[Rfam]
RNA sequence: AUGCAAUGGUGUGGACACCUUCGUAAUAAUUCCUUAUAUCUCUCUCAUGCUUCAUACAAUGUCUCUCCUUCCUGCUGUACAAAUGAUGUAAUCUCCCCCCUUAAUUU
Numbered sequence: 001a002u003g004c005a006a007u008g009g010u011g012u013g014g015a016c017a018c019c020u021u022c023g024u025a026a027u028a029a030u031u032c033c034u035u036a037u038a039u040c041u042c043u044c045u046c047a048u049g050c051u052u053c054a055u056a057c058a059a060u061g062u063c064u065c066u067c068c069u070u071c072c073u074g075c076u077g078u079a080c081a082a083a084u085g086a087u088g089u090a091a092u093c094u095c096c097c098c099c100c101u102u103a104a105u106u107u
Base pairs, nucleotide, nucleotide: 001107003105005102006101057074058073
RNA: Plant small nucleolar RNA R71
Organism: Abrus precatorius